[Rfam]
RNA sequence: UUUAUAAUAUAAAUAUGUCUUGUGCAAUAUUUGGGACAUACUUAUACUAAAA
Numbered sequence: 001u002u003u004a005u006a007a008u009a010u011a012a013a014u015a016u017g018u019c020u021u022g023u024g025c026a027a028u029a030u031u032u033g034g035g036a037c038a039u040a041c042u043u044a045u046a047c048u049a050a051a052a
Stems, first nucleotide, its partner, number of pairs: 006048001008046005014040003018036004022031001